[Rfam]
RNA: RT-3 RNA
RNA sequence: UAUCGGCGUACAACGAUGAGGACGCGCUCCUCGAUGUGGUGCCGAGGGAAACGAGCCACAGCAACAGCGUCCAUGAAAGGACGGAAAGCUGAAACAUCAAGUGUCGGGCAAUAGAGUUUGGUAGGCCGGGAACGGUUCGAAGAAGUUUGGCCCG
Numbered sequence: 001u002a003u004c005g006g007c008g009u010a011c012a013a014c015g016a017u018g019a020g021g022a023c024g025c026g027c028u029c030c031u032c033g034a035u036g037u038g039g040u041g042c043c044g045a046g047g048g049a050a051a052c053g054a055g056c057c058a059c060a061g062c063a064a065c066a067g068c069g070u071c072c073a074u075g076a077a078a079g080g081a082c083g084g085a086a087a088g089c090u091g092a093a094a095c096a097u098c099a100a101g102u103g104u105c106g107g108g109c110a111a112u113a114g115a116g117u118u119u120g121g122u123a124g125g126c127c128g129g130g131a132a133c134g135g136u137u138c139g140a141a142g143a144a145g146u147u148u149g150g151c152c153c154g
Base pairs, nucleotide, nucleotide: 003045004044005043006042007041008040011039013037014036015035018032019031020030021029022028047057048056059091060090061089062088068083069082070081071080072079105154106153107152108151109150114147115146117144118143119142124137125136126135127134128133